[Rfam]
RNA: ZMP/ZTP riboswitch aptamer (pfl RNA motif)
RNA sequence: GACCGCUGACGCGACUGGCGGCAUCGGGGAUGGCAGUAACCAUCGGGGAGCUCGUCGCGGGGGUCGACCGCCUGGGCCUCCGCG
Numbered sequence: 001g002a003c004c005g006c007u008g009a010c011g012c013g014a015c016u017g018g019c020g021g022c023a024u025c026g027g028g029g030a031u032g033g034c035a036g037u038a039a040c041c042a043u044c045g046g047g048g049a050g051c052u053c054g055u056c057g058c059g060g061g062g063g064u065c066g067a068c069c070g071c072c073u074g075g076g077c078c079u080c081c082g083c084g
Stems, first nucleotide, its partner, number of pairs: 004057002007054003011051002015047002017072005030043004061079005